[Rfam]
Small nucleolar RNA Z278: a 117-nucleotide RNA from Cephalotus follicularis. The family's RNA type in Rfam is C/D-box small nucleolar RNA. Gene Ontology terms of the family: RNA processing and nucleolus. About the family: snoZ278 is a C/D box small nucleolar RNA. Its methylation guide targets have not been reported.
RNA sequence: GCUAUUGAUGACUUGAUCCAGCUUGUAUGAGUUGCAGUGGAGCCAAGUUCCUGUUUUACAGGAAGAACCUACUUGGUGAAGCUACAGUUCACUGAUAUUAAUGGAUUGAACUGAAGC
Numbered sequence: 001g002c003u004a005u006u007g008a009u010g011a012c013u014u015g016a017u018c019c020a021g022c023u024u025g026u027a028u029g030a031g032u033u034g035c036a037g038u039g040g041a042g043c044c045a046a047g048u049u050c051c052u053g054u055u056u057u058a059c060a061g062g063a064a065g066a067a068c069c070u071a072c073u074u075g076g077u078g079a080a081g082c083u084a085c086a087g088u089u090c091a092c093u094g095a096u097a098u099u100a101a102u103g104g105a106u107u108g109a110a111c112u113g114a115a116g117c
Stems, first nucleotide, its partner, number of pairs: 001117003049063005
The literature on the family includes a 2003 paper in Nucleic Acids Res by Chen et al., "The high diversity of snoRNAs in plants: identification and comparative study of 120 snoRNA genes from Oryza sativa". The organism belongs to Cephalotus, within Eukaryota.